[Rfam]
RNA sequence: GUUGAGGGCACUGGAGGCAGCGGUUCAUCGAUCUGUUCCUGGACUGGUUUGGUUUACACUCAUUGCAGCAAUCGAUCGAUAAACCUCUGCAUCCAGCGCUCAACUC
Numbered sequence: 001g002u003u004g005a006g007g008g009c010a011c012u013g014g015a016g017g018c019a020g021c022g023g024u025u026c027a028u029c030g031a032u033c034u035g036u037u038c039c040u041g042g043a044c045u046g047g048u049u050u051g052g053u054u055u056a057c058a059c060u061c062a063u064u065g066c067a068g069c070a071a072u073c074g075a076u077c078g079a080u081a082a083a084c085c086u087c088u089g090c091a092u093c094c095a096g097c098g099c100u101c102a103a104c105u106c
Stems, first nucleotide, its partner, number of pairs: 013094003018089003022085004027080007036071002
Shown here is a 106-nucleotide RNA sequence from Carnegiea gigantea, a member of the family "MIR162_1 microRNA precursor family". On this family, see Reinhart et al., Genes Dev 2002: "MicroRNAs in plants". The base pairs follow the family's consensus structure, which was predicted with RNAalifold. Its Rfam clan is "MIR167 microRNA precursor clan". Rfam 15.1 lists 270 matches to the family in 158 species. The match comes from Rfam's covariance-model search (91 bits).